A member of the RNA family "U1 spliceosomal RNA" from Mandrillus leucophaeus, 163 nucleotides long.
[Rfam]
RNA sequence: AUUCUUAUAUGUCGGGGUAGUGCCGUGAUCAUGAAGGUGGUUCUCCCAGCACCAAGGCUCAUCUAUUGCACUCCAGAUGUGCUGACCCCCUGAGAUUUCACCAAAUGUGGGAAACUUGAUUGCAUAAUUUAUGGUGGUGGUGAACUGUGUUCGCUUUCUCCAG
Numbered sequence: 001a002u003u004c005u006u007a008u009a010u011g012u013c014g015g016g017g018u019a020g021u022g023c024c025g026u027g028a029u030c031a032u033g034a035a036g037g038u039g040g041u042u043c044u045c046c047c048a049g050c051a052c053c054a055a056g057g058c059u060c061a062u063c064u065a066u067u068g069c070a071c072u073c074c075a076g077a078u079g080u081g082c083u084g085a086c087c088c089c090c091u092g093a094g095a096u097u098u099c100a101c102c103a104a105a106u107g108u109g110g111g112a113a114a115c116u117u118g119a120u121u122g123c124a125u126a127a128u129u130u131a132u133g134g135u136g137g138u139g140g141u142g143a144a145c146u147g148u149g150u151u152c153g154c155u156u157u158c159u160c161c162a163g
Base pairs, nucleotide, nucleotide: 013122014121015120016047017046019044020043022041023040024039025038026037048091049090056083057082058081060079061078062077063076064075094117095116096114097112098111101109138162139161140160142158144157147154148153
A search with the family's covariance model found it, with a score of 78 bits. It is annotated as a spliceosomal small nuclear RNA.